The family of this 54-nucleotide RNA from Microvirga vignae is "terC RNA". The family's RNA type in Rfam is cis-regulatory element.

[Rfam]
RNA sequence: CCUUGGGUCCAGGCCCCUCUGGCGGGCCGCCGCCUGCGAUGUCGGAUACCUUCU
Numbered sequence: 001c002c003u004u005g006g007g008u009c010c011a012g013g014c015c016c017c018u019c020u021g022g023c024g025g026g027c028c029g030c031c032g033c034c035u036g037c038g039a040u041g042u043c044g045g046a047u048a049c050c051u052u053c054u
Stems, first nucleotide, its partner, number of pairs: 007047004012042001022037006